[Rfam]
RNA sequence: UUCCCCCAUCCUUACUGCAGACACAGUAAACCCCGUACUGUGCACUGUCAUUGUCCUGGGGGUAGAUUAAAAUGCCUUCUUCCCUCCCCAGCAGGAAUUAAUAUCAUAUUCUCUGGGGCCUACAGAAUGGGCUGACAAC
Numbered sequence: 001u002u003c004c005c006c007c008a009u010c011c012u013u014a015c016u017g018c019a020g021a022c023a024c025a026g027u028a029a030a031c032c033c034c035g036u037a038c039u040g041u042g043c044a045c046u047g048u049c050a051u052u053g054u055c056c057u058g059g060g061g062g063u064a065g066a067u068u069a070a071a072a073u074g075c076c077u078u079c080u081u082c083c084c085u086c087c088c089c090a091g092c093a094g095g096a097a098u099u100a101a102u103a104u105c106a107u108a109u110u111c112u113c114u115g116g117g118g119c120c121u122a123c124a125g126a127a128u129g130g131g132c133u134g135a136c137a138a139c
Stems, first nucleotide, its partner, number of pairs: 003062006011053001017048004023041005074132002077129001086118006093112004